This 124-nucleotide RNA from Gossypium anomalum belongs to the Rfam family "MIR7504 microRNA precursor family". Rfam 15.1 lists 7,343 matches to the family in 61 species. A search with the family's covariance model found it, with a score of 89 bits. NCBI's taxonomy places the organism under Eukaryota, Tracheophyta, Magnoliopsida, Gunneridae, Gossypium.
RNA sequence: AUUAGGAGAAUGACAAAUUAGAUUUUUCCUCUUGAUUUUUAGCAUUUUCAGUUGGAUUUAAAUUUUUUUCAGGAGGAAAAUGCUAAAAAUUAGGAUGAAAAAUCCGAUUUAUCAUUCUCCUAUU
Numbered sequence: 001a002u003u004a005g006g007a008g009a010a011u012g013a014c015a016a017a018u019u020a021g022a023u024u025u026u027u028c029c030u031c032u033u034g035a036u037u038u039u040u041a042g043c044a045u046u047u048u049c050a051g052u053u054g055g056a057u058u059u060a061a062a063u064u065u066u067u068u069u070c071a072g073g074a075g076g077a078a079a080a081u082g083c084u085a086a087a088a089a090u091u092a093g094g095a096u097g098a099a100a101a102a103u104c105c106g107a108u109u110u111a112u113c114a115u116u117c118u119c120c121u122a123u124u
Stems, first nucleotide, its partner, number of pairs: 001124001003122011015110005021104007030095010041084002045080004